[Rfam]
RNA sequence: AUCUCACAAAAUAAUGAAUUACUGAUGUCAAAAAGUCUGCUCUCUUCUAACGCGGUUAUAAUAUAGAACCGUAUUAAUGGUUGCAGCUUUUUCCUCUUCAUGGAAUCGGUAUAGAUUAUGUCGGGGAGACCGACAGCAUAGCUUAAAACCAUCGUGAAGUCGUUGCUUCGUGCCAUGGCUCGUGAUGACCGAAUGCUACGUACAGUUU
Numbered sequence: 001a002u003c004u005c006a007c008a009a010a011a012u013a014a015u016g017a018a019u020u021a022c023u024g025a026u027g028u029c030a031a032a033a034a035g036u037c038u039g040c041u042c043u044c045u046u047c048u049a050a051c052g053c054g055g056u057u058a059u060a061a062u063a064u065a066g067a068a069c070c071g072u073a074u075u076a077a078u079g080g081u082u083g084c085a086g087c088u089u090u091u092u093c094c095u096c097u098u099c100a101u102g103g104a105a106u107c108g109g110u111a112u113a114g115a116u117u118a119u120g121u122c123g124g125g126g127a128g129a130c131c132g133a134c135a136g137c138a139u140a141g142c143u144u145a146a147a148a149c150c151a152u153c154g155u156g157a158a159g160u161c162g163u164u165g166c167u168u169c170g171u172g173c174c175a176u177g178g179c180u181c182g183u184g185a186u187g188a189c190c191g192a193a194u195g196c197u198a199c200g201u202a203c204a205g206u207u208u
Stems, first nucleotide, its partner, number of pairs: 025112005039087003043083001046080002052072006136201002139198004150187008159179005165173002